[Rfam]
Nucleotides: 358
Base pairs, nucleotide, nucleotide: 001321002320003319009318011198012197013196014195016192018191019190020189022085023084024083025082026081027080028079030078032074033073034072035071036070037069038068039067045063046062047061048060049059050058051057089185090184091183092181093180094179100174101173102172103171104170105169106168107151108150111147112146113145114144115143116142117141118140122133123132124131159166160165203244204243205242206241207240208239212238213237217233218232219231220230255317256316257315258314259313260312263295264294265293266292267291268290269289270288271287272286273285274284275283276282299306300305323350324349325348332343333342334341335340
Number, partner (000 for none) and nucleotide at each position: 001321g002320g003319c004000c005000u006000a007000a008000a009318a010000c011198g012197u013196c014195c015000g016192u017000a018191g019190c020189c021000g022085g023084u024083u025082u026081a027080g028079u029000a030078a031000a032074u033073g034072c035071c036070u037069g038068g039067g040000u041000a042000a043000a044000u045063c046062g047061u048060g049059u050058a051057g052000c053000u054000u055000a056000a057051c058050u059049a060048u061047a062046c063045g064000a065000c066000u067039u068038c069037c070036g071035g072034g073033u074032a075000g076000a077000c078030u079028g080027c081026u082025a083024a084023a085022c086000u087000u088000g089185a090184g091183a092181c093180c094179g095000g096000g097000a098000g099000a100174g101173g102172c103171u104170a105169g106168a107151g108150g109000u110000a111147c112146u113145c114144c115143u116142g117141g118140g119000g120000u121000a122133g123132a124131g125000g126000u127000g128000a129000a130000a131124u132123u133122c134000u135000g136000u137000a138000a139000u140118c141117c142116u143115a144114g145113g146112g147111g148000g149000a150108c151107c152000a153000c154000c155000a156000g157000u158000g159166g160165c161000g162000a163000a164000g165160g166159c167000g168106u169105c170104u171103a172102g173101c174100u175000a176000g177000a178000a179094c180093g181092g182000g183091u184090c185089u186000a187000a188000c189020g190019g191018u192016g193000a194000g195014g196013g197012a198011c199000g200000a201000a202000g203244c204243c205242c206241u207240g208239g209000g210000g211000c212238a213237c214000a215000a216000a217233c218232c219231g220230g221000a222000u223000u224000a225000g226000a227000u228000a229000c230220c231219c232218g233217g234000g235000u236000a237213g238212u239208c240207c241206a242205g243204g244203g245000u246000g247000u248000a249000a250000a251000c252000g253000c254000u255317g256316c257315u258314u259313g260312c261000u262000u263295g264294a265293u266292g267291u268290u269289a270288g271287u272286u273285g274284g275283g276282c277000u278000c279000c280000g281000a282276g283275c284274c285273c286272a287271a288270c289269u290268a291267g292266u293265g294264u295263c296000g297000g298000a299306g300305a301000g302000a303000a304000g305300u306299u307000g308000u309000u310000a311000a312260g313259c314258a315257a316256g317255c318009u319003g320002c321001c322000u323350g324349g325348g326000a327000a328000g329000u330000a331000c332343g333342g334341u335340c336000g337000c338000a339000a340335g341334g342333c343332u344000g345000a346000a347000a348325c349324u350323u351000a352000a353000a354000g355000g356000a357000a358000u

Shown here is a 358-nucleotide part of an RNA from Thermoplasmatales archaeon SCGC AB-539-C06, a member of the family "Archaeal small subunit ribosomal RNA". The source organism's lineage runs through Archaea, Methanobacteriati, Thermoplasmatota, Thermoplasmata and Thermoplasmatales. Gene Ontology terms of the family: structural constituent of ribosome and ribosome. Clan: SSU clan.